tRNA: a 73-nucleotide RNA from Labrys okinawensis. Lineage of the source: Bacteria > Pseudomonadota > Alphaproteobacteria > Xanthobacteraceae > Labrys.
RNA sequence: GCCUAGGUAGCUCAGUUGGUAGAGCAUGCGACUGAAAAUCGCAGUGUCGGUGGUUCGAUUCCGCCCCUAGGCA
Dot-bracket structure: (((((((..((((........)))).(((((.......))))).....(((((.......)))))))))))).